[Rfam]
RNA sequence: GGACUCCGCCCGGACUGAAAGUCUCUCCUCCGCGGCGUGCUUGCACGGAAGCGGAGGAAAGACUUUAUGACGCGCCCCCCUCAUGAGCAUGAAGAGGGACCUCGUCCCUCGGAAUGCGAAUGAGGGGCGCAGGCCGCAAGGCGCGAAGCGGCGAAGGCAUGCGGGAAUCA
Numbered sequence: 001g002g003a004c005u006c007c008g009c010c011c012g013g014a015c016u017g018a019a020a021g022u023c024u025c026u027c028c029u030c031c032g033c034g035g036c037g038u039g040c041u042u043g044c045a046c047g048g049a050a051g052c053g054g055a056g057g058a059a060a061g062a063c064u065u066u067a068u069g070a071c072g073c074g075c076c077c078c079c080c081u082c083a084u085g086a087g088c089a090u091g092a093a094g095a096g097g098g099a100c101c102u103c104g105u106c107c108c109u110c111g112g113a114a115u116g117c118g119a120a121u122g123a124g125g126g127g128c129g130c131a132g133g134c135c136g137c138a139a140g141g142c143g144c145g146a147a148g149c150g151g152c153g154a155a156g157g158c159a160u161g162c163g164g165g166a167a168u169c170a
Base pairs, nucleotide, nucleotide: 002169003168005166006165007164013071015069019065020064021063022062023061024060026058027057028056029055030054031053032052033051036047037046038045039044077127078126079125080124081123082122083121084120087117088116089115090114094110095109096108097107098106099105100104129162130161131160133158134157135156140152142150143149
RNA: Clostridiales-1 RNA
Organism: Oribacterium sp. oral taxon 078